[Rfam]
RNA: TPP riboswitch aptamer (THI element)
Organism: Salibacterium salarium
RNA sequence: AUGAGUCACUAGGGGUGCUUUUUAAAAGCUGAGAAAAGACUGGAAGUCUUUAACCCUUAAAACCUGAACUGGUUAAUACCGGCGUAGGAAAGUGAGUUGUAUUUUUA
Number, nucleotide and partner (000 for none) at each position: 001a000002u000003g000004a000005g000006u095007c094008a093009c092010u091011a057012g056013g055014g054015g000016u000017g029018c028019u027020u026021u025022u000023u000024a000025a021026a020027a019028g018029c017030u000031g000032a000033g000034a000035a000036a050037a049038g048039a047040c046041u000042g000043g000044a000045a000046g040047u039048c038049u037050u036051u000052a000053a000054c014055c013056c012057u011058u000059a000060a000061a000062a000063c088064c087065u086066g085067a000068a000069c082070u081071g080072g079073u000074u000075a000076a000077u000078a000079c072080c071081g070082g069083c000084g000085u066086a065087g064088g063089a000090a000091a010092g009093u008094g007095a006096g000097u000098u000099g000100u000101a000102u000103u000104u000105u000106u000107a000